A member of the RNA family "MIR2617 microRNA precursor family" from Medicago truncatula, 85 nucleotides long. The base pairs follow the family's consensus structure, which was predicted with RNAalifold. Its family is annotated with miRNA-mediated post-transcriptional gene silencing and RISC complex in the Gene Ontology.

RNA sequence: AUGUAGUGUGACAUGCCCGUUUGGGAUAUACUCUGAUGUGUUUAUUUAUUAUUUAUUUGCUUUGGGAUAACGGGGUGUUAUAACG
Numbered sequence: 001a002u003g004u005a006g007u008g009u010g011a012c013a014u015g016c017c018c019g020u021u022u023g024g025g026a027u028a029u030a031c032u033c034u035g036a037u038g039u040g041u042u043u044a045u046u047u048a049u050u051a052u053u054u055a056u057u058u059g060c061u062u063u064g065g066g067a068u069a070a071c072g073g074g075g076u077g078u079u080a081u082a083a084c085g
Base pairs, nucleotide, nucleotide: 004085007082008081009080010079011078012077013076014075016074017073018072019071020070021069